[Rfam]
RNA sequence: GCGCAGCCCCCGCUGCGCACCGAGGAGCAGCGGACCGGGGACCCACCGCAGCACUGGGGUGAAGCACGCACCGACCCACCCAGGGUCGACGUGCCGGGCGAACUUCCCGUCCGAAUCCGUCAGCUAACCCGGUAGGCGGCUCGUUGGAAGAAAG
Numbered sequence: 001g002c003g004c005a006g007c008c009c010c011c012g013c014u015g016c017g018c019a020c021c022g023a024g025g026a027g028c029a030g031c032g033g034a035c036c037g038g039g040g041a042c043c044c045a046c047c048g049c050a051g052c053a054c055u056g057g058g059g060u061g062a063a064g065c066a067c068g069c070a071c072c073g074a075c076c077c078a079c080c081c082a083g084g085g086u087c088g089a090c091g092u093g094c095c096g097g098g099c100g101a102a103c104u105u106c107c108c109g110u111c112c113g114a115a116u117c118c119g120u121c122a123g124c125u126a127a128c129c130c131g132g133u134a135g136g137c138g139g140c141u142c143g144u145u146g147g148a149a150g151a152a153a154g
Base pairs, nucleotide, nucleotide: 001031034133035132036131037130038129039128044056045055057118058117059116065093066092067091068090096112097111098110099109

Record summary
Rfam assigns this 154-nucleotide RNA sequence from Geodermatophilus sp. Leaf369 to the family "c-di-AMP riboswitch aptamer (ydaO/yuaA leader)". This family represents a conserved RNA structure found upstream of the ydaO and yuaA genes in Bacillus subtilis and related genes in other bacteria. The ydaO/yuaA element is thought to act as a genetic 'off' switch for the ydaO and yuaA genes in its native state. It is believed that the element may be triggered during osmotic shock leading to activation of ydaO, a predicted amino acid transporter gene, and members of the yuaA-yubG operon which code for KtrA and KtrB K+ transporters. Pairs were carried over by alignment from the consensus structure.